[Rfam]
Nucleotides: 073
Stems, first nucleotide, its partner, number of pairs: 001073001003071001006067005012061008022051012
Number, partner (000 for none) and nucleotide at each position: 001073a002000g003071g004000g005000a006067g007066g008065c009064a010063g011000a012061g013060u014059c015058c016057u017056u018055c019054u020000c021000a022051c023050a024049u025048c026047g027046c028045a029044u030043c031042g032041c033040u034000g035000g036000c037000c038000a039000g040033a041032g042031u043030g044029a045028u046027g047026c048025g049024a050023u051022g052000u053000g054019a055018g056017a057016a058015g059014g060013a061012c062000u063010c064009u065008g066007c067006c068000a069000g070000c071003c072000a073001u
The record is a 73-nucleotide sequence from Pteropus vampyrus, which matches "mir-130 microRNA precursor family" in Rfam. A search with the family's covariance model found it, with a score of 44 bits. For this family Rfam cites "Identification of tissue-specific microRNAs from mouse" (Lagos-Quintana et al., Curr Biol, 2002).